[Rfam]
RNA sequence: GUCACACGAUCGUUAGUGAAAUCAUAUUGCCGCCCGAUUUCCGCCAAGCCGCGGCCCUGCUGGGCUGCGAGAGAUGAUACUUGCGUUGGCCCGGUCUUGUCGGCGUCGGAUUCCUCAGCCCCCAGCCCCCCGGGGUCUUCAGGAUCGGGCCUGUUCGCAACAAUCAAUCCCCACACUGAGGGCCAACGCGAGUUGGUCCUUUU
Numbered sequence: 001g002u003c004a005c006a007c008g009a010u011c012g013u014u015a016g017u018g019a020a021a022u023c024a025u026a027u028u029g030c031c032g033c034c035c036g037a038u039u040u041c042c043g044c045c046a047a048g049c050c051g052c053g054g055c056c057c058u059g060c061u062g063g064g065c066u067g068c069g070a071g072a073g074a075u076g077a078u079a080c081u082u083g084c085g086u087u088g089g090c091c092c093g094g095u096c097u098u099g100u101c102g103g104c105g106u107c108g109g110a111u112u113c114c115u116c117a118g119c120c121c122c123c124a125g126c127c128c129c130c131c132g133g134g135g136u137c138u139u140c141a142g143g144a145u146c147g148g149g150c151c152u153g154u155u156c157g158c159a160a161c162a163a164u165c166a167a168u169c170c171c172c173a174c175a176c177u178g179a180g181g182g183c184c185a186a187c188g189c190g191a192g193u194u195g196g197u198c199c200u201u202u203u
Base pairs, nucleotide, nucleotide: 038051041048081160082159083158084157085156088151089150090149091148092147093146094145095144096143097142098141102137103136104135106133107132108131109130118126119125180199181198182197183196184195185194186193187192
This 203-nucleotide RNA sequence from Rhodopseudomonas palustris belongs to the Rfam family "Bradyrhizobiaceae sRNA BjrC174". Pairs were carried over by alignment from the consensus structure. Lineage of the source: Bacteria > Pseudomonadati > Pseudomonadota > Alphaproteobacteria > Rhodopseudomonas palustris.